[Rfam]
RNA sequence: CGCUGAGUCCCGGACCGUUCUCGAGCGGUCCAGGAGCCGGGGAACCACCAUUCCUGGGGUGAAUCCCUCGCAAGGCGGCGUGCGCGAGCACGCCGAGGAGCGGGGGUAGGGCAAGUCGUGCCCGAACCCGACAGCUCACCCGGUAGGCGUA
Numbered sequence: 001c002g003c004u005g006a007g008u009c010c011c012g013g014a015c016c017g018u019u020c021u022c023g024a025g026c027g028g029u030c031c032a033g034g035a036g037c038c039g040g041g042g043a044a045c046c047a048c049c050a051u052u053c054c055u056g057g058g059g060u061g062a063a064u065c066c067c068u069c070g071c072a073a074g075g076c077g078g079c080g081u082g083c084g085c086g087a088g089c090a091c092g093c094c095g096a097g098g099a100g101c102g103g104g105g106g107u108a109g110g111g112c113a114a115g116u117c118g119u120g121c122c123c124g125a126a127c128c129c130g131a132c133a134g135c136u137c138a139c140c141c142g143g144u145a146g147g148c149g150u151a
Stems, first nucleotide, its partner, number of pairs: 001149004008035003036144006046056002057129003065106007109123004
RNA: c-di-AMP riboswitch aptamer (ydaO/yuaA leader)